[Rfam]
The record is a 72-nucleotide sequence from Apis mellifera, which matches "mir-71 microRNA precursor family" in Rfam. The source organism's lineage runs through Eukaryota, Arthropoda, Neoptera, Apinae and Apis. Rfam's curators put it in the seed alignment. The base pairs follow the family's consensus structure, which was predicted with RNAalifold.
RNA sequence: UCCGUCUGAAAGACAUGGGUAGUGAGAUGUUCUCACGCUAUCGCGUCUCACUAUCUUGUCUUUCAUCCGGCG
Numbered sequence: 001u002c003c004g005u006c007u008g009a010a011a012g013a014c015a016u017g018g019g020u021a022g023u024g025a026g027a028u029g030u031u032c033u034c035a036c037g038c039u040a041u042c043g044c045g046u047c048u049c050a051c052u053a054u055c056u057u058g059u060c061u062u063u064c065a066u067c068c069g070g071c072g
Stems, first nucleotide, its partner, number of pairs: 008064008017056003021052009